The family of this 97-nucleotide RNA sequence from Kalanchoe fedtschenkoi is "Small nucleolar RNA Z43". The match comes from Rfam's covariance-model search (83 bits).
Nucleotides: 097
Base pairs, nucleotide, nucleotide: 001097002096003095004094043057044052
Number, partner (000 for none) and nucleotide at each position: 001097g002096g003095g004094c005000u006000g007000u008000g009000a010000u011000g012000a013000a014000u015000g016000u017000g018000a019000u020000u021000a022000g023000g024000u025000c026000u027000c028000g029000u030000u031000c032000g033000u034000c035000g036000u037000a038000a039000c040000g041000u042000c043057g044052g045000u046000c047000a048000c049000c050000a051000c052044c053000g054000c055000c056000u057043u058000g059000a060000c061000g062000a063000c064000c065000a066000c067000u068000c069000u070000g071000u072000u073000a074000u075000a076000u077000c078000a079000c080000c081000a082000c083000c084000c085000a086000u087000a088000a089000u090000c091000u092000g093000a094004g095003u096002c097001c